[Rfam]
This 106-nucleotide RNA from Tetracentron sinense belongs to the Rfam family "Small nucleolar RNA Z279/snoR105/snoR108".
The literature on the family includes a 2002 paper in Curr Biol by Marker et al., "Experimental RNomics: identification of 140 candidates for small non-messenger RNAs in the plant Arabidopsis thaliana".
The family has 20 seed sequences and 906 matches in Rfam 15.1.
It scores 84 bits against the family's covariance model.
Gene Ontology terms of the family: RNA processing and nucleolus.
This family includes the plant snoRNAs known as Z279, snoR105 and snoR108.
Rfam classes the family as a C/D-box small nucleolar RNA.

RNA sequence: GGGAUAUGAUGAGUGGUUAAAACUCGCUUCAAUGUUGCUAGAGGAGUGUUCCCCCCAAGCCUGGUUACGACUGUAUGGGCACUCCAAACUUUACCAAUCUGAUCCC
Numbered sequence: 001g002g003g004a005u006a007u008g009a010u011g012a013g014u015g016g017u018u019a020a021a022a023c024u025c026g027c028u029u030c031a032a033u034g035u036u037g038c039u040a041g042a043g044g045a046g047u048g049u050u051c052c053c054c055c056c057a058a059g060c061c062u063g064g065u066u067a068c069g070a071c072u073g074u075a076u077g078g079g080c081a082c083u084c085c086a087a088a089c090u091u092u093a094c095c096a097a098u099c100u101g102a103u104c105c106c
Base pairs, nucleotide, nucleotide: 001106002105003104004103014097016095018093023041024040026038027037043085044084045083046082047081048080049079050078062077063076064074065073